A member of the RNA family "ASpks TB sRNA" from Streptomyces sp. A73, 75 nucleotides long. A search with the family's covariance model found it, with a score of 68 bits. The family's consensus secondary structure is taken from published work.

RNA sequence: CUUGACCGAGCCGAGUUGCAGCGGCCUGUCCGCGGGUCGGCCCUGGCCGUACGUCGCGAGCAGUGCCCGCGCCUC
Numbered sequence: 001c002u003u004g005a006c007c008g009a010g011c012c013g014a015g016u017u018g019c020a021g022c023g024g025c026c027u028g029u030c031c032g033c034g035g036g037u038c039g040g041c042c043c044u045g046g047c048c049g050u051a052c053g054u055c056g057c058g059a060g061c062a063g064u065g066c067c068c069g070c071g072c073c074u075c
Stems, first nucleotide, its partner, number of pairs: 015025003031071003038065002043060002047056001049054001